[Rfam]
RNA sequence: CGAUACUAUGGGCAAACCAUUCGAAAGGAUGGGGCGCAAAGUCACCGGUCUAAGGGACAUCAUGUCCUAUGAUAGCGGGAUUGCUAGC
Numbered sequence: 001c002g003a004u005a006c007u008a009u010g011g012g013c014a015a016a017c018c019a020u021u022c023g024a025a026a027g028g029a030u031g032g033g034g035c036g037c038a039a040a041g042u043c044a045c046c047g048g049u050c051u052a053a054g055g056g057a058c059a060u061c062a063u064g065u066c067c068u069a070u071g072a073u074a075g076c077g078g079g080a081u082u083g084c085u086a087g088c
Stems, first nucleotide, its partner, number of pairs: 012037002017032006040082004045078003048073003055067004
Shown here is an 88-nucleotide sequence from Pseudoalteromonas sp. A25, a member of the family "c-di-GMP-I riboswitch aptamer". NCBI's taxonomy places the organism under Bacteria, Pseudomonadati, Gammaproteobacteria, Pseudoalteromonadaceae, Pseudoalteromonas. Pairs were carried over by alignment from the consensus structure, which is taken from published work.